[Rfam]
RNA sequence: CCGCAGGUCCGCUCCAUCGCCGCCUGGCAACAGGGGGAGGAAAGUCCGGGCAACGCAGAGCGCCACGCAAGCUAACGGCUUGAUAUCCGUGAGGGUAUAGCAAGUGUAACAGAAAAUAACCGCCCCGCAGGGGUAAGGGUGAAAAGGCGGGGUAAGAGCCCACCGCGAAGGUAGCGAUACGCUUCGGACAGUACAUCUCGUGGGUUGCAAGACCAUGUAUACCGGCAAUCAAGGGCUGCUCGUCCAAUGCCGGGGGGUAGGUUGCUUGAGGCGCCGGGAGACCGGCGUCCUAGAUAAAUGAUGGGGACUCCGGGCAACCGGAGCACAGAACCCGGCUUACAGGACCUGCAAAAUC
Numbered sequence: 001c002c003g004c005a006g007g008u009c010c011g012c013u014c015c016a017u018c019g020c021c022g023c024c025u026g027g028c029a030a031c032a033g034g035g036g037g038a039g040g041a042a043a044g045u046c047c048g049g050g051c052a053a054c055g056c057a058g059a060g061c062g063c064c065a066c067g068c069a070a071g072c073u074a075a076c077g078g079c080u081u082g083a084u085a086u087c088c089g090u091g092a093g094g095g096u097a098u099a100g101c102a103a104g105u106g107u108a109a110c111a112g113a114a115a116a117u118a119a120c121c122g123c124c125c126c127g128c129a130g131g132g133g134u135a136a137g138g139g140u141g142a143a144a145a146g147g148c149g150g151g152g153u154a155a156g157a158g159c160c161c162a163c164c165g166c167g168a169a170g171g172u173a174g175c176g177a178u179a180c181g182c183u184u185c186g187g188a189c190a191g192u193a194c195a196u197c198u199c200g201u202g203g204g205u206u207g208c209a210a211g212a213c214c215a216u217g218u219a220u221a222c223c224g225g226c227a228a229u230c231a232a233g234g235g236c237u238g239c240u241c242g243u244c245c246a247a248u249g250c251c252g253g254g255g256g257g258u259a260g261g262u263u264g265c266u267u268g269a270g271g272c273g274c275c276g277g278g279a280g281a282c283c284g285g286c287g288u289c290c291u292a293g294a295u296a297a298a299u300g301a302u303g304g305g306g307a308c309u310c311c312g313g314g315c316a317a318c319c320g321g322a323g324c325a326c327a328g329a330a331c332c333c334g335g336c337u338u339a340c341a342g343g344a345c346c347u348g349c350a351a352a353a354u355c
Stems, first nucleotide, its partner, number of pairs: 003349008011340001012306007020037002023034004042338003046335005051207004058241004063203005068082005083098001085096004099198002104196005120138002122134005146164002149161003165189001166186005171180003211263004222253005233245004270289008
RNA: Bacterial RNase P class A